[Rfam]
RNA sequence: GGCUGGUCUGAGUGCAGUAGUGUUUACAACUAAUUGAUUACAACCAAUUACAGAUUUCUUUGUUCAUUCUCCACUCCCACUGCUUUUGACUGCCAUAA
Numbered sequence: 001g002g003c004u005g006g007u008c009u010g011a012g013u014g015c016a017g018u019a020g021u022g023u024u025u026a027c028a029a030c031u032a033a034u035u036g037a038u039u040a041c042a043a044c045c046a047a048u049u050a051c052a053g054a055u056u057u058c059u060u061u062g063u064u065c066a067u068u069c070u071c072c073a074c075u076c077c078c079a080c081u082g083c084u085u086u087u088g089a090c091u092g093c094c095a096u097a098a
Base pairs, nucleotide, nucleotide: 001094002093003092005091006090007089008088010087011086014083015082016081017080018079020077022076028064029063030062032060033059
RNA: Y RNA
Organism: Colobus angolensis